[Rfam]
RNA sequence: GAGGCGGUAUCUGUGAAAAGAACUGCACUCUUGGCAUAGCAAAGCUGCUUUUGUUUAUACCUUCAUAACUGUAAUGAACGGUUACGUUGGAUUCUGCUCUGAGCCGCAAGGACCGAGACAGAAGG
Number, nucleotide and partner (000 for none) at each position: 001g030002a029003g028004g026005c025006g024007g023008u022009a000010u021011c020012u000013g000014u000015g000016a000017a000018a000019a000020g011021a010022a008023c007024u006025g005026c004027a000028c003029u002030c001031u000032u000033g000034g000035c000036a000037u000038a000039g000040c000041a000042a000043a000044g000045c000046u000047g000048c000049u000050u000051u000052u000053g000054u000055u000056u000057a000058u000059a000060c000061c000062u000063u000064c000065a000066u000067a000068a000069c000070u000071g000072u000073a000074a000075u000076g000077a000078a000079c000080g000081g000082u000083u000084a000085c000086g000087u000088u000089g000090g000091a000092u000093u000094c121095u120096g119097c117098u116099c115100u000101g113102a000103g000104c111105c110106g000107c000108a000109a000110g105111g104112a000113c101114c000115g099116a098117g097118a000119c096120a095121g094122a000123a000124g000125g000